[Rfam]
RNA sequence: AAUAAACGAUUAUUGUUCACUUGUAUAAAUCUAGCAAUAGGGGCUGGAUGUUUCUACCGAACUACCGUAAAUAGUUGUAGACUAUAAGUGUUAUGUGCUUAUUU
Numbered sequence: 001a002a003u004a005a006a007c008g009a010u011u012a013u014u015g016u017u018c019a020c021u022u023g024u025a026u027a028a029a030u031c032u033a034g035c036a037a038u039a040g041g042g043g044c045u046g047g048a049u050g051u052u053u054c055u056a057c058c059g060a061a062c063u064a065c066c067g068u069a070a071a072u073a074g075u076u077g078u079a080g081a082c083u084a085u086a087a088g089u090g091u092u093a094u095g096u097g098c099u100u101a102u103u104u
Base pairs, nucleotide, nucleotide: 018090019089020088021087022086023085024084025083029049030048031047032046033045034044035043058080060076061075062074063073064072
Rfam assigns this 104-nucleotide RNA from Crassaminicella thermophila to the family "Purine riboswitch aptamer".
It scores 75 bits against the family's covariance model.
Pairs were carried over by alignment from the consensus structure, which is taken from published work.
Gene Ontology term of the family: purine nucleobase biosynthetic process.